[Rfam]
RNA sequence: UGUCCAAGUUUGACCUAACAAGUUACCGAUGUAACAGUUUUUGCACACGUCGGUAAUUUGUUAGAUCAAACUUGGACA
Numbered sequence: 001u002g003u004c005c006a007a008g009u010u011u012g013a014c015c016u017a018a019c020a021a022g023u024u025a026c027c028g029a030u031g032u033a034a035c036a037g038u039u040u041u042u043g044c045a046c047a048c049g050u051c052g053g054u055a056a057u058u059u060g061u062u063a064g065a066u067c068a069a070a071c072u073u074g075g076a077c078a
Stems, first nucleotide, its partner, number of pairs: 001078013015064018035043002
The record is a 78-nucleotide RNA from Brugia malayi, which matches "mir-5880 microRNA precursor family" in Rfam. Rfam's curators put it in the seed alignment. Rfam links the family to the GO terms miRNA-mediated post-transcriptional gene silencing and RISC complex. Pairs were carried over by alignment from the consensus structure, which was predicted with RNAalifold. The family has 2 seed sequences and 6 matches in Rfam 15.1.